Rfam assigns this 140-nucleotide RNA from Neogobius melanostomus to the family "U4 spliceosomal RNA". The literature on the family includes a 2019 paper in Science by Charenton et al., "Mechanism of 5' splice site transfer for human spliceosome activation". Lineage of the source: Eukaryota > Craniata > Actinopterygii > Euacanthomorphacea > Neogobius. The base pairs follow the family's consensus structure, which is taken from published work.

RNA sequence: AGCUUUGCGCAGUGGCAGUAUCGUAGCUUAUGAGGUUUAUCCGAGGCGUAAUUAUUGUUAGUUGAAAACUUUACCCAAUACCCCGCCUUGACGACUUGAAAUAUAGUCGGCUAUGGCAAUUUUGUCAGUCUCUCAGGAGA
Numbered sequence: 001a002g003c004u005u006u007g008c009g010c011a012g013u014g015g016c017a018g019u020a021u022c023g024u025a026g027c028u029u030a031u032g033a034g035g036u037u038u039a040u041c042c043g044a045g046g047c048g049u050a051a052u053u054a055u056u057g058u059u060a061g062u063u064g065a066a067a068a069c070u071u072u073a074c075c076c077a078a079u080a081c082c083c084c085g086c087c088u089u090g091a092c093g094a095c096u097u098g099a100a101a102u103a104u105a106g107u108c109g110g111c112u113a114u115g116g117c118a119a120u121u122u123u124g125u126c127a128g129u130c131u132c133u134c135a136g137g138a139g140a
Base pairs, nucleotide, nucleotide: 020052021051023049024048026047027046028045034042035041085117086116087115088113090111092109093108094107095106096105129140130139131138132137
Notes: Rfam classes the family as a spliceosomal small nuclear RNA. It scores 105 bits against the family's covariance model.